[Rfam]
RNA sequence: AGGGCAGUAUCUUGUCGAACUGCACCCGUUAUACACAGUAUUCAAAAAUGGGUUCUGCCUGGAUCCAAUGGACCGGGACAGAGGG
Number, nucleotide and partner (000 for none) at each position: 001a000002g026003g025004g023005c022006a021007g020008u019009a000010u018011c017012u000013u000014g000015u000016c000017g011018a010019a008020c007021u006022g005023c004024a000025c003026c002027c000028g000029u000030u000031a000032u000033a000034c000035a000036c000037a000038g000039u000040a000041u000042u000043c000044a000045a000046a000047a000048a000049u000050g000051g000052g000053u000054u000055c081056u080057g079058c077059c076060u075061g074062g073063a000064u072065c071066c070067a000068a000069u000070g066071g065072a064073c062074c061075g060076g059077g058078a000079c057080a056081g055082a000083g000084g000085g000
RNA: pan motif
Organism: Ectobacillus ponti